[Rfam]
RNA sequence: GGCACGUGAUGGUUCUUUCUCACGAUGGUCUGCGGAGGCCGCUGUGGGCAGUGCCGAAAAUGCCAUUGGCUUAGCUGAUGCCAGCAC
Numbered sequence: 001g002g003c004a005c006g007u008g009a010u011g012g013u014u015c016u017u018u019c020u021c022a023c024g025a026u027g028g029u030c031u032g033c034g035g036a037g038g039c040c041g042c043u044g045u046g047g048g049c050a051g052u053g054c055c056g057a058a059a060a061u062g063c064c065a066u067u068g069g070c071u072u073a074g075c076u077g078a079u080g081c082c083a084g085c086a087c
Base pairs, nucleotide, nucleotide: 001082002081003080004079
RNA: Small nucleolar RNA SNORD35
Organism: Leptonychotes weddellii